[Rfam]
RNA: Yersinia sRNA 224
RNA sequence: GAGGUUAUUGACAAAGAGCCUGCGCUGGAGAAAACAGGCAGAUCGUAAAGAUACCGUAAACCCUUCCUUGGGGGGCGAUCCGCACCAUCCCUGGCGCGGACGCUUU
Number, nucleotide and partner (000 for none) at each position: 001g000002a000003g000004g000005u000006u000007a000008u000009u000010g000011a000012c000013a106014a105015a104016g103017a000018g101019c000020c028021u027022g026023c000024g000025c000026u022027g021028g020029a000030g076031a000032a000033a000034a000035c000036a000037g000038g000039c000040a000041g066042a065043u000044c000045g063046u000047a000048a000049a000050g000051a057052u056053a000054c000055c000056g052057u051058a000059a000060a000061c000062c000063c045064u000065u042066c041067c000068u000069u000070g000071g000072g000073g000074g000075g000076c030077g000078a000079u000080c099081c098082g097083c096084a000085c094086c093087a092088u000089c000090c000091c000092u087093g086094g085095c000096g083097c082098g081099g080100a000101c018102g000103c016104u015105u014106u013